[Rfam]
RNA sequence: CAUUAUAGAAAGCCGAAUCCAGCUCUGGUACGGGGGAACCAAUUAAGGGGGUGAAACUUGAUAAGUGUCAGCUUUUCAAGUAGGGUGCCUGCAACCCUAACCCGUCAGCUAACCUCGGAGGCAAGUGAGAGGAGAAAC
Numbered sequence: 001c002a003u004u005a006u007a008g009a010a011a012g013c014c015g016a017a018u019c020c021a022g023c024u025c026u027g028g029u030a031c032g033g034g035g036g037a038a039c040c041a042a043u044u045a046a047g048g049g050g051g052u053g054a055a056a057c058u059u060g061a062u063a064a065g066u067g068u069c070a071g072c073u074u075u076u077c078a079a080g081u082a083g084g085g086u087g088c089c090u091g092c093a094a095c096c097c098u099a100a101c102c103c104g105u106c107a108g109c110u111a112a113c114c115u116c117g118g119a120g121g122c123a124a125g126u127g128a129g130a131g132g133a134g135a136a137a138c
Stems, first nucleotide, its partner, number of pairs: 012122003019028002031117005040048001049103003057080004083097004
The family of this 138-nucleotide RNA sequence from Sporomusa ovata is "c-di-AMP riboswitch aptamer (ydaO/yuaA leader)".
Taxonomically the source falls in Sporomusa (Bacteria, Bacillota, Negativicutes, Sporomusaceae).
Pairs were carried over by alignment from the consensus structure.